[Rfam]
RNA: DABA-DC-AT RNA
RNA sequence: GCAAUCUCGGAAUGCUUCUGGGGGAUACGCGUGAUGACCUUCUUGCUGAUUGUGACAUUGCGUAGGGUAGGUAUUAGUUAAGCCUUUAACUAAUAGACGGGAUACUAAUGGUGCUUGCAUCAUGUUCAUGGGAAACCCAACA
Numbered sequence: 001g002c003a004a005u006c007u008c009g010g011a012a013u014g015c016u017u018c019u020g021g022g023g024g025a026u027a028c029g030c031g032u033g034a035u036g037a038c039c040u041u042c043u044u045g046c047u048g049a050u051u052g053u054g055a056c057a058u059u060g061c062g063u064a065g066g067g068u069a070g071g072u073a074u075u076a077g078u079u080a081a082g083c084c085u086u087u088a089a090c091u092a093a094u095a096g097a098c099g100g101g102a103u104a105c106u107a108a109u110g111g112u113g114c115u116u117g118c119a120u121c122a123u124g125u126u127c128a129u130g131g132g133a134a135a136c137c138c139a140a141c142a
Base pairs, nucleotide, nucleotide: 006022007021008020009019010018011017029063030062031061032060033059034058035057036056039052072095073094074093075092076091077090078089079088080087081086109122110121111120112119113118